Shown here is a 131-nucleotide RNA sequence from Enterobacterales bacterium CwR94, a member of the family "Molybdenum/Tungsten riboswitch aptamer (Moco RNA motif)". Taxonomically the source falls in Enterobacterales (Bacteria, Pseudomonadati, Pseudomonadota, Gammaproteobacteria).
RNA sequence: CGGCAAAUCACACACUCUAGCCCUCUCACCUGGGUCGCAAGAUACGGUGGGUUGGCCGCAGCCUAAGCUGCCAGGGUAUCGCGAGAAAUGGCGGUGCCUCCCGAUUGGAAAGGUGUUAUUGGUGUCACAAU
Numbered sequence: 001c002g003g004c005a006a007a008u009c010a011c012a013c014a015c016u017c018u019a020g021c022c023c024u025c026u027c028a029c030c031u032g033g034g035u036c037g038c039a040a041g042a043u044a045c046g047g048u049g050g051g052u053u054g055g056c057c058g059c060a061g062c063c064u065a066a067g068c069u070g071c072c073a074g075g076g077u078a079u080c081g082c083g084a085g086a087a088a089u090g091g092c093g094g095u096g097c098c099u100c101c102c103g104a105u106u107g108g109a110a111a112g113g114u115g116u117u118a119u120u121g122g123u124g125u126c127a128c129a130a131u
Stems, first nucleotide, its partner, number of pairs: 003125002012116004017112001020056003025051006034043003058071005074099009084089001100108002